[Rfam]
Shown here is a 105-nucleotide sequence from Paenibacillus foliorum, a member of the family "TPP riboswitch aptamer (THI element)". On this family, see Warner et al., Chem Biol 2014: "Validating fragment-based drug discovery for biological RNAs: lead fragments bind and remodel the TPP riboswitch specifically". The base pairs follow the family's consensus structure, which is taken from published work.

RNA sequence: AAAUGUCACUAGGGGAGCCGCAAGGCUGAGAUUGGAUCAAUAGAUCCUAGACCCUCUGAACCUGAUCUGGAUUGCGCCAGCGUAGGGAAGUGGAGAGCGAUUGAA
Numbered sequence: 001a002a003a004u005g006u007c008a009c010u011a012g013g014g015g016a017g018c019c020g021c022a023a024g025g026c027u028g029a030g031a032u033u034g035g036a037u038c039a040a041u042a043g044a045u046c047c048u049a050g051a052c053c054c055u056c057u058g059a060a061c062c063u064g065a066u067c068u069g070g071a072u073u074g075c076g077c078c079a080g081c082g083u084a085g086g087g088a089a090g091u092g093g094a095g096a097g098c099g100a101u102u103g104a105a
Base pairs, nucleotide, nucleotide: 006093007092008091009090010089011055012054013053014052017026018025019024034047035046036045037044061086062085063084064083067080068079069078070077